RNA sequence: UACUGAUAAAACAAUGAUAGUCACGUGUUACAUCCUGAUUGGAUAUUAACUCUAUAAACGAUAAAAAUGUAUUGUUGUUGUCAUCGUCAAAUUAGAACAUGAUAUGUGACAAUCAGCAUUC
Numbered sequence: 001u002a003c004u005g006a007u008a009a010a011a012c013a014a015u016g017a018u019a020g021u022c023a024c025g026u027g028u029u030a031c032a033u034c035c036u037g038a039u040u041g042g043a044u045a046u047u048a049a050c051u052c053u054a055u056a057a058a059c060g061a062u063a064a065a066a067a068u069g070u071a072u073u074g075u076u077g078u079u080g081u082c083a084u085c086g087u088c089a090a091a092u093u094a095g096a097a098c099a100u101g102a103u104a105u106g107u108g109a110c111a112a113u114c115a116g117c118a119u120u121c
Stems, first nucleotide, its partner, number of pairs: 020110004025105002029101002033097001035095002038092003